[Rfam]
RNA sequence: GCAUAGCGAUGAUGCCGGAGGUUGCGCGGCUCUGACCGCGGUAAUUUCGGCGGAGUAUGUCGGACAUGCUAGUCCGGCGG
Numbered sequence: 001g002c003a004u005a006g007c008g009a010u011g012a013u014g015c016c017g018g019a020g021g022u023u024g025c026g027c028g029g030c031u032c033u034g035a036c037c038g039c040g041g042u043a044a045u046u047u048c049g050g051c052g053g054a055g056u057a058u059g060u061c062g063g064a065c066a067u068g069c070u071a072g073u074c075c076g077g078c079g080g
Stems, first nucleotide, its partner, number of pairs: 014051003018048004025040005058079008
Dot-bracket structure: .............(((.((((...(((((......)))))....)))))))......((((((((......)))))))).
This 80-nucleotide RNA from Eubacterium sp. CAG:115 belongs to the Rfam family "S10-Clostridia ribosomal protein leader". On this family, see Eckert and Weinberg, BMC Microbiol 2020: "Discovery of 20 novel ribosomal leader candidates in bacteria and archaea". The source organism's lineage runs through Bacteria, Bacillati, Bacillota, Eubacteriales and Eubacterium.